[Rfam]
RNA: Mammalian CPEB3 ribozyme
RNA sequence: GAUCCAUUUCUAGGGGCCAGGGCAGAAGCAUUCACACCGUGGCUUCUGACAGAUUUACUAGGAAUCUCUGAAUUCUGCU
Numbered sequence: 001g002a003u004c005c006a007u008u009u010c011u012a013g014g015g016g017c018c019a020g021g022g023c024a025g026a027a028g029c030a031u032u033c034a035c036a037c038c039g040u041g042g043c044u045u046c047u048g049a050c051a052g053a054u055u056u057a058c059u060a061g062g063a064a065u066c067u068c069u070g071a072a073u074u075c076u077g078c079u
Base pairs, nucleotide, nucleotide: 013046014045015044016043017042018041021079022078023077024076025075026074027073028040029039051067052066053065054064055063056062